[Rfam]
RNA sequence: UGACCUUUCUUAAGCCGAAGGUCACCUAGCCAACUGACGUUGUUAGUGAAUACAAUUUGUUCACAUAUUUAUAAGCCAAUCGUACUUUACGAUUGGCUAUUUUUUU
Numbered sequence: 001u002g003a004c005c006u007u008u009c010u011u012a013a014g015c016c017g018a019a020g021g022u023c024a025c026c027u028a029g030c031c032a033a034c035u036g037a038c039g040u041u042g043u044u045a046g047u048g049a050a051u052a053c054a055a056u057u058u059g060u061u062c063a064c065a066u067a068u069u070u071a072u073a074a075g076c077c078a079a080u081c082g083u084a085c086u087u088u089a090c091g092a093u094u095g096g097c098u099a100u101u102u103u104u105u106u
Stems, first nucleotide, its partner, number of pairs: 001024006040074004046064007076096008
RNA: Qrr RNA